Rfam assigns this 123-nucleotide RNA sequence from Myxococcus xanthus to the family "SAM-I/IV (S-adenosyl methionine) riboswitch aptamer". Gene Ontology terms of the family: regulation of gene expression and S-adenosylmethionine metabolic process.
RNA sequence: GCGCAGCAUCAAGAGCGGCCGCCGCCUCGCGCGGUGGCCCGACAACCUGGAGUCGGACCUCCAAGGUGUCCAAACGAUGCGGUUCGAGGAGCAGGGGCUCCCCGAGCAAUCCAAGCGUCCGAA
Numbered sequence: 001g002c003g004c005a006g007c008a009u010c011a012a013g014a015g016c017g018g019c020c021g022c023c024g025c026c027u028c029g030c031g032c033g034g035u036g037g038c039c040c041g042a043c044a045a046c047c048u049g050g051a052g053u054c055g056g057a058c059c060u061c062c063a064a065g066g067u068g069u070c071c072a073a074a075c076g077a078u079g080c081g082g083u084u085c086g087a088g089g090a091g092c093a094g095g096g097g098c099u100c101c102c103c104g105a106g107c108a109a110u111c112c113a114a115g116c117g118u119c120c121g122a123a
Stems, first nucleotide, its partner, number of pairs: 006080005015040001017039009041070003046066003049062003056116001082107004